The record is a 75-nucleotide sequence from Mikania micrantha, which matches "Plastid-ycf2 5UTR RNA" in Rfam. About the family: Plastid ycf2 is a non-coding RNA (ncRNA) recognised in plastids. It was found in the prime untranslated region (5UTR) of ycf2 genes, it presents a tRNA-like motif which suggests it can be involved in mRNA maturation, particularly involved in defining the precise 5' end of the transcript.
[Rfam]
RNA sequence: UUGCCUUUGCGGGUAAAAGAACCUACGAAUUCGCCAAUUAUGAGUUGGGUGCUUUAACCAUUCAGCCAUGGAUGC
Numbered sequence: 001u002u003g004c005c006u007u008u009g010c011g012g013g014u015a016a017a018a019g020a021a022c023c024u025a026c027g028a029a030u031u032c033g034c035c036a037a038u039u040a041u042g043a044g045u046u047g048g049g050u051g052c053u054u055u056a057a058c059c060a061u062u063c064a065g066c067c068a069u070g071g072a073u074g075c
Stems, first nucleotide, its partner, number of pairs: 003075002006072003009026001011024003040069003044066008

The organism belongs to Mikania, within Eukaryota.
By type it is a cis-regulatory element.
A reference for the family is Richter et al. (2023), "Retrograde signaling in plants: A critical review focusing on the GUN pathway and beyond", Plant Commun.